[Rfam]
RNA sequence: UUGCAGACUUGAAGACUUCAACUUGCAGAAUUAAAGAAUUUGAAGACUUCAACUUGCAGAAUUAAAGAAUUUGAAAAUCUCAACU
Numbered sequence: 001u002u003g004c005a006g007a008c009u010u011g012a013a014g015a016c017u018u019c020a021a022c023u024u025g026c027a028g029a030a031u032u033a034a035a036g037a038a039u040u041u042g043a044a045g046a047c048u049u050c051a052a053c054u055u056g057c058a059g060a061a062u063u064a065a066a067g068a069a070u071u072u073g074a075a076a077a078u079c080u081c082a083a084c085u
Base pairs, nucleotide, nucleotide: 001083002082003081005078009074010073011072012071013070016067017066018065020063024058025057026056027055031052032051034049035048036047
RNA: MIR8024 microRNA precursor family
Organism: Solanum commersonii